[Rfam]
RNA: Small nucleolar RNA psi28S-3316
Organism: Drosophila rhopaloa
RNA sequence: AGCACCUAAAAGCGUUUUCUUGCCGGCCUUUUAAAUGCUCUUGAAAAUCGUAGAUGUGUGCCAGAGCAAAGCUCAGCUGCAAGUGUUUCUGUGUUCUUCCAUAACAGAAUUCUAUACCGCUGACUAUAAAU
Numbered sequence: 001a002g003c004a005c006c007u008a009a010a011a012g013c014g015u016u017u018u019c020u021u022g023c024c025g026g027c028c029u030u031u032u033a034a035a036u037g038c039u040c041u042u043g044a045a046a047a048u049c050g051u052a053g054a055u056g057u058g059u060g061c062c063a064g065a066g067c068a069a070a071g072c073u074c075a076g077c078u079g080c081a082a083g084u085g086u087u088u089c090u091g092u093g094u095u096c097u098u099c100c101a102u103a104a105c106a107g108a109a110u111u112c113u114a115u116a117c118c119g120c121u122g123a124c125u126a127u128a129a130a131u
Base pairs, nucleotide, nucleotide: 002061003060004059005058006056012051013050014049015047016046017045018044019043022038023037025036073123074122075121076120077119082115085112087109088108089107091105092104